RNA: RAGATH-18 RNA
RNA sequence: CCCUUGGACUAUUACAUCAAACUAAAGUAGAAUAUUUUCGGAUAUUUGAAAUAGGGUAGGUUGAAUAGGGAA
Number, nucleotide and partner (000 for none) at each position: 001c070002c069003c068004u067005u000006g000007g000008a000009c059010u058011a057012u056013u055014a000015c000016a000017u000018c000019a000020a000021a000022c054023u053024a052025a000026a000027g000028u000029a000030g047031a046032a045033u044034a043035u000036u000037u000038u000039c000040g000041g000042a000043u034044a033045u032046u031047u030048g000049a000050a000051a000052u024053a023054g022055g013056g012057u011058a010059g009060g000061u000062u000063g000064a000065a000066u000067a004068g003069g002070g001071a000072a000